Background:
The family of this 370-nucleotide RNA from Pandoraea terrae is "transfer-messenger RNA". The family is grouped with related families in Rfam's "tRNA clan". The base pairs follow the family's consensus structure, which is taken from published work. Rfam describes the family as follows. Bacterial tmRNA, also known as 10Sa RNA or SsrA, is named for its dual tRNA and mRNA-like properties.
RNA sequence: GGGGGCGACCUGGUUUCGACAGGGGUUGUGAAGCGGCCAGGGCAUGUCGAGGACCCGUCACCUCGUUAAUCAAUGGGAAAAACGUAACUGCAAACGACGACACGUUCGCACUGGCAGCCUAAGGGCCGCCGUCCUCUGCCUAGUUCACUGACGGACUAGCGUCGCAAGACCGGUAGCAAUACCGCCAGAGGUCAUAUACGUCAGUUAAGCCUUGGCGGCGUCACGACGCCCGGGUCGAAAACCUAGUGAAUCGCCGUAACGCAGCGUGUUCGUCCGCGUCGCUACGGUUAAAUCAAAAGACAGAACUACACAUGUAGAACUGGUCGUAGAUCGCUUCUGGACGCGGGUUCGAUUCCCGCCGCCUCCACCA
Numbered sequence: 001g002g003g004g005g006c007g008a009c010c011u012g013g014u015u016u017c018g019a020c021a022g023g024g025g026u027u028g029u030g031a032a033g034c035g036g037c038c039a040g041g042g043c044a045u046g047u048c049g050a051g052g053a054c055c056c057g058u059c060a061c062c063u064c065g066u067u068a069a070u071c072a073a074u075g076g077g078a079a080a081a082a083c084g085u086a087a088c089u090g091c092a093a094a095c096g097a098c099g100a101c102a103c104g105u106u107c108g109c110a111c112u113g114g115c116a117g118c119c120u121a122a123g124g125g126c127c128g129c130c131g132u133c134c135u136c137u138g139c140c141u142a143g144u145u146c147a148c149u150g151a152c153g154g155a156c157u158a159g160c161g162u163c164g165c166a167a168g169a170c171c172g173g174u175a176g177c178a179a180u181a182c183c184g185c186c187a188g189a190g191g192u193c194a195u196a197u198a199c200g201u202c203a204g205u206u207a208a209g210c211c212u213u214g215g216c217g218g219c220g221u222c223a224c225g226a227c228g229c230c231c232g233g234g235u236c237g238a239a240a241a242c243c244u245a246g247u248g249a250a251u252c253g254c255c256g257u258a259a260c261g262c263a264g265c266g267u268g269u270u271c272g273u274c275c276g277c278g279u280c281g282c283u284a285c286g287g288u289u290a291a292a293u294c295a296a297a298a299g300a301c302a303g304a305a306c307u308a309c310a311c312a313u314g315u316a317g318a319a320c321u322g323g324u325c326g327u328a329g330a331u332c333g334c335u336u337c338u339g340g341a342c343g344c345g346g347g348u349u350c351g352a353u354u355c356c357c358g359c360c361g362c363c364u365c366c367a368c369c370a
Base pairs, nucleotide, nucleotide: 001366002365003364004363005362006361007360020339021338022337023336024335025334026333028331029330033327034326035325036324037323038322039321040320043314044313045312046311047310048065049064050063051062052061054077055076056075057074058073110132111131113130114129115128117126118125133191134190135189136188137187138186140159141158144155145154147205148204149203150202151201152200153199209236210233211232214229221249222248223247224246253288254287255286256285257284258283260281261280264277265276266275268306269305270304271303272301273300274299343359344358345357346356347355